RNA sequence: CUUAGGAACCAAUGAUGUUUUUACCUAAAUUGUCUGAACCUGUCUGAAACAUCCAAGUGAUGGAACUUCUAUGUGAUGCUGAGGUUUCUCUGCCA
Numbered sequence: 001c002u003u004a005g006g007a008a009c010c011a012a013u014g015a016u017g018u019u020u021u022u023a024c025c026u027a028a029a030u031u032g033u034c035u036g037a038a039c040c041u042g043u044c045u046g047a048a049a050c051a052u053c054c055a056a057g058u059g060a061u062g063g064a065a066c067u068u069c070u071a072u073g074u075g076a077u078g079c080u081g082a083g084g085u086u087u088c089u090c091u092g093c094c095a
Stems, first nucleotide, its partner, number of pairs: 004089007

The record is a 95-nucleotide RNA from Chrysochloris asiatica, which matches "Small nucleolar RNA SNORD91 family" in Rfam.
Taxonomically the source falls in Chrysochloris (Eukaryota, Vertebrata, Mammalia, Chrysochloridae).
The family has 24 seed sequences and 977 matches in Rfam 15.1.